[Rfam]
RNA sequence: UCGGAUUCGCAUGACUGGCGGGAUUGCGAGGGGAACCUCGGGGGAGUGCGAAUCUUCACGGGCCAUGGGGGGCGGCCGUCUUCGCCCCGGGCCCGUCAGCCGGCCGCCUGGGCGCUCUGA
Numbered sequence: 001u002c003g004g005a006u007u008c009g010c011a012u013g014a015c016u017g018g019c020g021g022g023a024u025u026g027c028g029a030g031g032g033g034a035a036c037c038u039c040g041g042g043g044g045a046g047u048g049c050g051a052a053u054c055u056u057c058a059c060g061g062g063c064c065a066u067g068g069g070g071g072g073c074g075g076c077c078g079u080c081u082u083c084g085c086c087c088c089g090g091g092c093c094c095g096u097c098a099g100c101c102g103g104c105c106g107c108c109u110g111g112g113c114g115c116u117c118u119g120a
Stems, first nucleotide, its partner, number of pairs: 003055010015043002017108005028039004099113003
Record summary:
The record is a 120-nucleotide RNA from Paenalicyclobacillus macrosporangiidus, which matches "ZMP/ZTP riboswitch aptamer (pfl RNA motif)" in Rfam. Lineage of the source: Bacteria > Bacillota > Bacilli > Alicyclobacillaceae > Paenalicyclobacillus. The family's consensus secondary structure is taken from published work.